[Rfam]
Source information: Small nucleolar RNA snoR74: a 131-nucleotide sequence from Apium graveolens. The source organism's lineage runs through Eukaryota, Streptophyta, Embryophyta, Apiineae and Apium. The family has 9 seed sequences and 1,404 matches in Rfam 15.1. Pairs were carried over by alignment from the consensus structure, which was predicted with WAR. Rfam links the family to the GO terms nucleolus and RNA processing. It scores 89 bits against the family's covariance model.
RNA sequence: UAAAAAGCAGUGCCCCAUCUCCUCUAUAAAUGGGACAUUCGUUGAAUUCAGGAAAAGCAACUCGUGAAUCGUUCUUGGGUGAACCUCUGAGAAUUUAAGUGGCUGAAGGUUCAGUAAAUGAUUCAACAUGU
Numbered sequence: 001u002a003a004a005a006a007g008c009a010g011u012g013c014c015c016c017a018u019c020u021c022c023u024c025u026a027u028a029a030a031u032g033g034g035a036c037a038u039u040c041g042u043u044g045a046a047u048u049c050a051g052g053a054a055a056a057g058c059a060a061c062u063c064g065u066g067a068a069u070c071g072u073u074c075u076u077g078g079g080u081g082a083a084c085c086u087c088u089g090a091g092a093a094u095u096u097a098a099g100u101g102g103c104u105g106a107a108g109g110u111u112c113a114g115u116a117a118a119u120g121a122u123u124c125a126a127c128a129u130g131u
Stems, first nucleotide, its partner, number of pairs: 005048002011037002014034004065125009080113007